[Rfam]
RNA sequence: CGGGCAUCGUCGCCGGACACCACCUCUCGUCCGGGUCCUGGGGUGCUGGUGGAGGACCCACUCACGACUCGCGAGAGCGGCUCGUGGCGGUCUGCGCGAGCAGGCCUUGGGGUGAAGCCGCAUCUGCGGCCGGACACCUGACCGUCCGAACCCGACAGCUCACUUCACAGGCGUCGUCAGGAAAGGAU
Numbered sequence: 001c002g003g004g005c006a007u008c009g010u011c012g013c014c015g016g017a018c019a020c021c022a023c024c025u026c027u028c029g030u031c032c033g034g035g036u037c038c039u040g041g042g043g044u045g046c047u048g049g050u051g052g053a054g055g056a057c058c059c060a061c062u063c064a065c066g067a068c069u070c071g072c073g074a075g076a077g078c079g080g081c082u083c084g085u086g087g088c089g090g091u092c093u094g095c096g097c098g099a100g101c102a103g104g105c106c107u108u109g110g111g112g113u114g115a116a117g118c119c120g121c122a123u124c125u126g127c128g129g130c131c132g133g134a135c136a137c138c139u140g141a142c143c144g145u146c147c148g149a150a151c152c153c154g155a156c157a158g159c160u161c162a163c164u165u166c167a168c169a170g171g172c173g174u175c176g177u178c179a180g181g182a183a184a185g186g187a188u
Base pairs, nucleotide, nucleotide: 011173012172013171014170018048019047049168050167051166052165053164054163059109060108110153111152112151118129119128120127121126132147133146134145135144
The family of this 188-nucleotide RNA from Arsenicicoccus cauae is "c-di-AMP riboswitch aptamer (ydaO/yuaA leader)".